[Rfam]
RNA sequence: ACGUCCUGCCUCGUGAUCGUCUUCUCAACCUUCACUGAAGCAGGCGGAUGGACGAAAGGCCCCCGUGAGGACAUGACUCACGGGGGCCUUUC
Numbered sequence: 001a002c003g004u005c006c007u008g009c010c011u012c013g014u015g016a017u018c019g020u021c022u023u024c025u026c027a028a029c030c031u032u033c034a035c036u037g038a039a040g041c042a043g044g045c046g047g048a049u050g051g052a053c054g055a056a057a058g059g060c061c062c063c064c065g066u067g068a069g070g071a072c073a074u075g076a077c078u079c080a081c082g083g084g085g086g087c088c089u090u091u092c
Stems, first nucleotide, its partner, number of pairs: 002046002005044005011038001013035004019029002054092016

Shown here is a 92-nucleotide RNA from Streptomyces sp. BA2, a member of the family "sodF sRNA".
The base pairs follow the family's consensus structure.
It scores 92 bits against the family's covariance model.
The family's RNA type in Rfam is small RNA.
Gene Ontology terms of the family: negative regulation of translation, mRNA binding and regulation of mRNA stability.
The source organism's lineage runs through Bacteria, Bacillati, Actinomycetes, Kitasatosporales and Streptomyces.